The family of this 125-nucleotide sequence from Martinezella rhizogenes is "Alphaproteobacterial ar14". Pairs were carried over by alignment from the consensus structure. Smr14C2 was renamed NfeR1 (Nodule Formation Efficiency RNA) highly expressed in salt stress and during the symbiotic interaction on legume roots. Its family is annotated with biological process involved in symbiotic interaction in the Gene Ontology. The family's RNA type in Rfam is small RNA. The family has 118 seed sequences and 784 matches in Rfam 15.1.
[Rfam]
RNA sequence: AUGAUGCAGGCGCUCUUAUCCUCCUCCCAAGGUCGCCUGCGGGAACAGCAGCACUCCUCCUCCCAGCUGCUGUUCGGUUCUUUUCGAAAAGCCUGCCGCACCUCCUCCCGCGGCAGGCUUUUUCG
Numbered sequence: 001a002u003g004a005u006g007c008a009g010g011c012g013c014u015c016u017u018a019u020c021c022u023c024c025u026c027c028c029a030a031g032g033u034c035g036c037c038u039g040c041g042g043g044a045a046c047a048g049c050a051g052c053a054c055u056c057c058u059c060c061u062c063c064c065a066g067c068u069g070c071u072g073u074u075c076g077g078u079u080c081u082u083u084u085c086g087a088a089a090a091g092c093c094u095g096c097c098g099c100a101c102c103u104c105c106u107c108c109c110g111c112g113g114c115a116g117g118c119u120u121u122u123u124c125g
Stems, first nucleotide, its partner, number of pairs: 006040003010036003014032003043075010089120011
Taxonomically the source falls in Martinezella rhizogenes (Bacteria, Pseudomonadati, Hyphomicrobiales, Rhizobiaceae).